Shown here is a 129-nucleotide RNA from Myotis davidii, a member of the family "Small nucleolar RNA SNORA11". Rfam 15.1 lists 2,014 matches to the family in 202 species. Rfam links the family to the GO terms nucleolus and RNA processing. By type it is an H/ACA-box small nucleolar RNA. From the family's description: U107 (SNORA11) is a member of the H/ACA class of snoRNAs that guide the sites of modification of uridines to pseudouridines. This snoRNA was identified by RT-PCR from blood cells and its expression confirmed by Northern blot analysis. There is no predicted target for this guide snRNA.
[Rfam]
Nucleotides: 129
Base pairs, nucleotide, nucleotide: 003055004054005053007051008050013045015043016042017041018040019039020038022035023034024033068122069121070120071119076114080111081110083104084103085102087100088099090097091096
Number, partner (000 for none) and nucleotide at each position: 001000u002000a003055g004054a005053u006000u007051u008050g009000g010000a011000g012000a013045g014000a015043g016042c017041a018040g019039a020038g021000c022035g023034c024033c025000u026000g027000a028000a029000g030000a031000a032000u033024g034023g035022c036000u037000u038020c039019u040018c041017u042016g043015u044000g045013u046000a047000c048000a049000a050008c051007a052000c053005a054004u055003c056000c057000a058000a059000u060000a061000g062000c063000a064000u065000c066000u067000u068122g069121g070120g071119c072000u073000u074000a075000c076114u077000c078000c079000u080111c081110a082000u083104g084103g085102g086000u087100g088099g089000c090097a091096g092000a093000a094000u095000a096091c097090u098000a099088u100087u101000c102085c103084c104083u105000u106000c107000c108000u109000g110081u111080g112000a113000c114076a115000u116000u117000a118000c119071g120070c121069c122068c123000g124000a125000u126000a127000c128000a129000u